[Rfam]
RNA sequence: UGCCAGUGAUGAGCUUAAUUUCUGACACCUCGAAUGAGCGUUGCUUUGCAAACAUUUUGAUUAAAUUAUCUAUCUGAGGCAU
Numbered sequence: 001u002g003c004c005a006g007u008g009a010u011g012a013g014c015u016u017a018a019u020u021u022c023u024g025a026c027a028c029c030u031c032g033a034a035u036g037a038g039c040g041u042u043g044c045u046u047u048g049c050a051a052a053c054a055u056u057u058u059g060a061u062u063a064a065a066u067u068a069u070c071u072a073u074c075u076g077a078g079g080c081a082u
Stems, first nucleotide, its partner, number of pairs: 001081004041051004
RNA: Small nucleolar RNA SNORD60
Organism: Polypterus senegalus